Shown here is a 103-nucleotide RNA from Clostridium pasteurianum, a member of the family "SAM riboswitch aptamer (S box leader)". It scores 94 bits against the family's covariance model. NCBI's taxonomy places the organism under Bacteria, Bacillati, Clostridiaceae, Clostridium, Clostridium pasteurianum. Gene Ontology term of the family: regulation of gene expression. Pairs were carried over by alignment from the consensus structure, which is taken from published work. The family is grouped with related families in Rfam's "SAM clan". The family has 457 seed sequences and 9,625 matches in Rfam 15.1. Rfam's curators write: The SAM riboswitch is found upstream of a number of genes which code for proteins involved in methionine or cysteine biosynthesis in Gram-positive bacteria.
RNA sequence: CUCUUAUCAAGAGUGGUGGAGGGAUAGGCCCGAUGAAACCCGGCAACAUUCAACUACAGUUGAAAAUGUGCUAAUUCCUACAGAAUUUUCUGAAAGAUAAGAG
Numbered sequence: 001c002u003c004u005u006a007u008c009a010a011g012a013g014u015g016g017u018g019g020a021g022g023g024a025u026a027g028g029c030c031c032g033a034u035g036a037a038a039c040c041c042g043g044c045a046a047c048a049u050u051c052a053a054c055u056a057c058a059g060u061u062g063a064a065a066a067u068g069u070g071c072u073a074a075u076u077c078c079u080a081c082a083g084a085a086u087u088u089u090c091u092g093a094a095a096g097a098u099a100a101g102a103g
Base pairs, nucleotide, nucleotide: 001103002102003101004100005099006098007097008096013041015040016039017038021031022030023029025080026079027078028077042072043071044070045069047068048067049064050063051062052061076095081092082091083090084089
Dot-bracket structure: ((((((((....(.(((...(((.[[[[)))......))))((((.((((((........))))..))))))...(]]]]((((....))))..)))))))))